[Rfam]
RNA: DUF805b RNA
RNA sequence: AACGCGUAUGCUGAAAAGCGUAUAACAGAGUAGGCU
Numbered sequence: 001a002a003c004g005c006g007u008a009u010g011c012u013g014a015a016a017a018g019c020g021u022a023u024a025a026c027a028g029a030g031u032a033g034g035c036u
Stems, first nucleotide, its partner, number of pairs: 002021004010035003